[Rfam]
RNA sequence: GAGUUGUAAUGAUGGCCUAACUGUAAACUGCUUUGCAGAUGGUUUUGCCUGAUGUAAAACUU
Numbered sequence: 001g002a003g004u005u006g007u008a009a010u011g012a013u014g015g016c017c018u019a020a021c022u023g024u025a026a027a028c029u030g031c032u033u034u035g036c037a038g039a040u041g042g043u044u045u046u047g048c049c050u051g052a053u054g055u056a057a058a059a060c061u062u
Base pairs, nucleotide, nucleotide: 001062002061003060004059005058014049015048016047019044020043021042022041023040028038029037030036
Shown here is a 62-nucleotide RNA sequence from Paramuricea clavata, a member of the family "Selenocysteine insertion sequence 1".